The family of this 185-nucleotide RNA from Sporosarcina sp. BI001-red is "Lysine riboswitch aptamer". It scores 100 bits against the family's covariance model.
RNA sequence: AUGUGAGGUAGAGGCGCGAUAGUUAUUAGUGCAUAGUGAAGUCCGAGAAGACGUAGAAGCUAUGCAGAAGGAAAUGUCGCCGAAGUAUAGGAAGUAUUCUCGUCUAUCUAUACUGGGACUGUAAUGAAUAAUUGCAGGACUGUCUUAAUAAAUUUUCCGAUUUAUUAAGUUGUGCUAUCUCAGAA
Number, nucleotide and partner (000 for none) at each position: 001a000002u000003g000004u000005g000006a180007g179008g178009u177010a176011g175012a000013g000014g000015c000016g080017c079018g078019a077020u076021a075022g000023u073024u072025a000026u000027u000028a000029g000030u000031g065032c064033a063034u062035a061036g060037u059038g000039a000040a000041g000042u000043c000044c000045g000046a000047g000048a000049a000050g000051a000052c000053g000054u000055a000056g000057a000058a000059g037060c036061u035062a034063u033064g032065c031066a000067g000068a000069a000070g000071g000072a024073a023074a000075u021076g020077u019078c018079g017080c016081c000082g000083a000084a114085g113086u112087a111088u110089a109090g108091g107092a000093a105094g104095u000096a000097u000098u000099c000100u000101c000102g000103u000104c094105u093106a000107u091108c090109u089110a088111u087112a086113c085114u084115g141116g140117g000118a000119c137120u136121g135122u134123a133124a132125u131126g000127a000128a000129u000130a000131a125132u124133u123134g122135c121136a120137g119138g000139a000140c116141u115142g000143u000144c169145u168146u167147a166148a165149u164150a163151a162152a161153u000154u000155u000156u000157c000158c000159g000160a000161u152162u151163u150164a149165u148166u147167a146168a145169g144170u000171u000172g000173u000174g000175c011176u010177a009178u008179c007180u006181c000182a000183g000184a000185a000